[Rfam]
RNA: Gammaprotebacteria rimP leader
RNA sequence: UUUCAGUUCAGUGCUAUCAGGGUCCGGCAAGACAAAACCCCGACUUACGGGGUUUUUUGUUAUCUGUACCUUAGAAAGGCAUAUGUAAAGCAUUGUUUUUCUUGGAUUUCAGAUUUCUUGCUUGGUGUUUGAAUUGGGCUUUUAGCCCUUUUUUU
Numbered sequence: 001u002u003u004c005a006g007u008u009c010a011g012u013g014c015u016a017u018c019a020g021g022g023u024c025c026g027g028c029a030a031g032a033c034a035a036a037a038c039c040c041c042g043a044c045u046u047a048c049g050g051g052g053u054u055u056u057u058u059g060u061u062a063u064c065u066g067u068a069c070c071u072u073a074g075a076a077a078g079g080c081a082u083a084u085g086u087a088a089a090g091c092a093u094u095g096u097u098u099u100u101c102u103u104g105g106a107u108u109u110c111a112g113a114u115u116u117c118u119u120g121c122u123u124g125g126u127g128u129u130u131g132a133a134u135u136g137g138g139c140u141u142u143u144a145g146c147c148c149u150u151u152u153u154u155u
Stems, first nucleotide, its partner, number of pairs: 034056009136148004